[Rfam]
RNA: Small nucleolar RNA SNORD74
RNA sequence: AUGCUCUGCGCAUGAUGAGAACUAUGUUGGUAGGGACAUCUGAGAGACUGAUGAAUGCCAACAUAUCUGAGCCGGGCAU
Numbered sequence: 001a002u003g004c005u006c007u008g009c010g011c012a013u014g015a016u017g018a019g020a021a022c023u024a025u026g027u028u029g030g031u032a033g034g035g036a037c038a039u040c041u042g043a044g045a046g047a048c049u050g051a052u053g054a055a056u057g058c059c060a061a062c063a064u065a066u067c068u069g070a071g072c073c074g075g076g077c078a079u
Stems, first nucleotide, its partner, number of pairs: 001079005